[Rfam]
RNA: Small nucleolar RNA SNORA47
RNA sequence: AGGAGGAUUGAGAAAGUUAAGCAGCUGUUUUUGUACUGCAUUAACUGGUUGUAACCUCCUAGAAAAACCACAAGUGCUGAAGUGCUUUUGAUUUUCUGUAUGAAAGUAGUCAUUUGCAAUACUUG
Numbered sequence: 001a002g003g004a005g006g007a008u009u010g011a012g013a014a015a016g017u018u019a020a021g022c023a024g025c026u027g028u029u030u031u032u033g034u035a036c037u038g039c040a041u042u043a044a045c046u047g048g049u050u051g052u053a054a055c056c057u058c059c060u061a062g063a064a065a066a067a068c069c070a071c072a073a074g075u076g077c078u079g080a081a082g083u084g085c086u087u088u089u090g091a092u093u094u095u096c097u098g099u100a101u102g103a104a105a106g107u108a109g110u111c112a113u114u115u116g117c118a119a120u121a122c123u124u125g
Stems, first nucleotide, its partner, number of pairs: 002059005015046004019041001021039004075118003080114002089108002092105002095103002